[Rfam]
RNA sequence: GCGCCUCCCUCUCCGCCCGCUCGGCCGCCACAUGGCAGCCGGAUGAGGGCCUCGGGGCAACGC
Number, nucleotide and partner (000 for none) at each position: 001g061002c000003g000004c000005c057006u056007c055008c054009c000010u000011c000012u000013c000014c000015g050016c049017c048018c047019g000020c000021u042022c041023g040024g039025c038026c000027g000028c035029c034030a000031c000032a000033u000034g029035g028036c000037a000038g025039c024040c023041g022042g021043a000044u000045g000046a000047g018048g017049g016050c015051c000052u000053c000054g008055g007056g006057g005058c000059a000060a000061c001062g000063c000